The family of this 75-nucleotide RNA sequence from Deinococcus sp. Leaf326 is "c-di-GMP-I riboswitch aptamer".
[Rfam]
RNA sequence: AACGACCAAAGGCAAACCUCUCGCAAGAGGGGGACGCAAAGCCACGGGGCCCUCUGGGCCGGCCGGGUUACCGAA
Numbered sequence: 001a002a003c004g005a006c007c008a009a010a011g012g013c014a015a016a017c018c019u020c021u022c023g024c025a026a027g028a029g030g031g032g033g034a035c036g037c038a039a040a041g042c043c044a045c046g047g048g049g050c051c052c053u054c055u056g057g058g059c060c061g062g063c064c065g066g067g068u069u070a071c072c073g074a075a
Base pairs, nucleotide, nucleotide: 012037013036017032018031019030020029021028022027040069041068042067043066045065046064047063048060049059050058051057052056
A search with the family's covariance model found it, with a score of 66 bits.